Source information: A member of the RNA family "mir-126 microRNA precursor family" from Anolis carolinensis, 73 nucleotides long. Rfam 15.1 lists 1,407 matches to the family in 631 species. For this family Rfam cites "Clustering and conservation patterns of human microRNAs" (Altuvia et al., Nucleic Acids Res, 2005). The sequence is in the family's curated seed alignment.
[Rfam]
RNA sequence: CCGCGGUCCAUUAUUACUUUUGGUACGCGCUGUGCCACUUCAAACUCGUACCGUGAGUAAUAAUGCGCUGAGG
Number, nucleotide and partner (000 for none) at each position: 001c000002c000003g000004c000005g000006g000007u000008c000009c065010a064011u063012u062013a061014u060015u059016a058017c057018u056019u000020u000021u053022g052023g051024u050025a049026c048027g047028c000029g045030c000031u000032g000033u000034g000035c000036c000037a000038c000039u000040u000041c000042a000043a000044a000045c029046u000047c027048g026049u025050a024051c023052c022053g021054u000055g000056a018057g017058u016059a015060a014061u013062a012063a011064u010065g009066c000067g000068c000069u000070g000071a000072g000073g000